[Rfam]
RNA sequence: GUAGAGACUAGAGUCUCAUCUUGACACACAUUAUUGUCUUGGUGUGCUUGAGUUCUCUUAAAGUAAACGACUGGUCCUAUUCACCGACUGGCUCUUUUGUUGGCCUGUCACCCACAUGGGCAGUUACAGUU
Dot-bracket structure: ..(((((((..((.(.((((..((((........))))..)))).)))..))).))))............(((.((.........((..(((.(.......))))..))........)).)))........
The family of this 131-nucleotide RNA from Cynoglossus semilaevis is "Small nucleolar RNA SNORA3/SNORA45 family". The family's consensus secondary structure was predicted with RNAalifold. Taxonomically the source falls in Cynoglossus (Eukaryota, Gnathostomata, Osteoglossocephalai, Pleuronectoidei). A search with the family's covariance model found it, with a score of 58 bits. About the family: The members of this family belong to the H/ACA class of snoRNAs which are thought to guide the sites of modification of uridines to pseudouridines. This family includes mouse snoMBI-28 and human homologues ACA3 (SNORA3) and ACA3-2 (SNORA45). Both ACA3 and ACA3-2 share the same host gene. MBI-28, ACA3 and ACA3-2 are all predicted to guide the pseudouridylation of residues in 28S rRNA.